[Rfam]
RNA sequence: UUUCCCAAUGAUGCUUCAGUAGAAACCAUGCUAAUGCUGAUAAUUCCAUGAUUGAUCCUUCCUUAUUUCAUUUACUGAGGGAAAC
Dot-bracket structure: (((((..........................................................................))))).

This 85-nucleotide sequence from Carpinus fangiana belongs to the Rfam family "Small nucleolar RNA snoR53Y". The family's consensus secondary structure was predicted with WAR. NCBI's taxonomy places the organism under Eukaryota, Viridiplantae, Euphyllophyta, Mesangiospermae, Carpinus. Clan: snoR53 clan.